[Rfam]
RNA sequence: GAAUAUAAGGAGCAAUAAACUCUUUCUUCUUCUAUCAAGAGGGAUUAUUGCUCCUUUAU
Numbered sequence: 001g002a003a004u005a006u007a008a009g010g011a012g013c014a015a016u017a018a019a020c021u022c023u024u025u026c027u028u029c030u031u032c033u034a035u036c037a038a039g040a041g042g043g044a045u046u047a048u049u050g051c052u053c054c055u056u057u058a059u
Stems, first nucleotide, its partner, number of pairs: 007056011021044002024041005
RNA: Plastid-psbA-4 3UTR RNA